The family of this 364-nucleotide RNA from Mycetocola miduiensis is "Bacterial RNase P class A".
The organism belongs to Mycetocola, within Bacteria.
From the family's description: Ribonuclease P (RNase P) is a ubiquitous endoribonuclease, found in archaea, bacteria and eukarya as well as chloroplasts and mitochondria.
The family's RNA type in Rfam is ribozyme.
Gene Ontology terms of the family: dimeric ribonuclease P complex, tRNA processing and ribonuclease P activity.
RNA sequence: UGGGUCGGCAAGACGGCCGCGUCGCCAGUAAUGGCGCCGAGGAACGUCCGGGCUCCGCAGAGCAGGGCGGUGGGUAACACCCACCCGGGGUAACCCGCGAGACAGUGCAACAGAAAGUAGACCGCCCGGCGCGCAAGCGCCAGGUAAGGGUGAAACGGUGGUGUAAGAGACCACCAGCGGCCGGGGUGACCCGGCCGGCUCGGUAAACCUCGCCCGGAGCAAGGUCAGACAGAGGACUAUGGGGCUGCUCGUCCCGUCCUCGGGUAGACCGCUGGAAGGCUGCGGUAACGCAGUCUCGAGAGAGAUGGUCGUCCAAGGUGCGCAAGCACCUGAACAGAACCCGGCGUAUCAGCCGGCCCAUUCA
Numbered sequence: 001u002g003g004g005u006c007g008g009c010a011a012g013a014c015g016g017c018c019g020c021g022u023c024g025c026c027a028g029u030a031a032u033g034g035c036g037c038c039g040a041g042g043a044a045c046g047u048c049c050g051g052g053c054u055c056c057g058c059a060g061a062g063c064a065g066g067g068c069g070g071u072g073g074g075u076a077a078c079a080c081c082c083a084c085c086c087g088g089g090g091u092a093a094c095c096c097g098c099g100a101g102a103c104a105g106u107g108c109a110a111c112a113g114a115a116a117g118u119a120g121a122c123c124g125c126c127c128g129g130c131g132c133g134c135a136a137g138c139g140c141c142a143g144g145u146a147a148g149g150g151u152g153a154a155a156c157g158g159u160g161g162u163g164u165a166a167g168a169g170a171c172c173a174c175c176a177g178c179g180g181c182c183g184g185g186g187u188g189a190c191c192c193g194g195c196c197g198g199c200u201c202g203g204u205a206a207a208c209c210u211c212g213c214c215c216g217g218a219g220c221a222a223g224g225u226c227a228g229a230c231a232g233a234g235g236a237c238u239a240u241g242g243g244g245c246u247g248c249u250c251g252u253c254c255c256g257u258c259c260u261c262g263g264g265u266a267g268a269c270c271g272c273u274g275g276a277a278g279g280c281u282g283c284g285g286u287a288a289c290g291c292a293g294u295c296u297c298g299a300g301a302g303a304g305a306u307g308g309u310c311g312u313c314c315a316a317g318g319u320g321c322g323c324a325a326g327c328a329c330c331u332g333a334a335c336a337g338a339a340c341c342c343g344g345c346g347u348a349u350c351a352g353c354c355g356g357c358c359c360a361u362u363c364a
Base pairs, nucleotide, nucleotide: 001360002359003358004357005356006355007354008353009352011349012313013312014311015310016309017308018307020039021038023036024035025034026033027032044347045346046345048344049343050342051341052340053219054218055217056216060250061249062248063247065215066214067213068212069211070084071083072082073081074080085099086097087096088095089094100210101209105208106207107204108203122149123148124145125144126143128141129140130139131138132137157175158174159173160172161171162170177199178197179196180195181194182193183192184191185190223270224269225268226267232261233260234259235258236257237256241255242254243253244252245251277296278295279294280293281292282291283290284289

The family's consensus secondary structure is taken from published work. A search with the family's covariance model found it, with a score of 303 bits.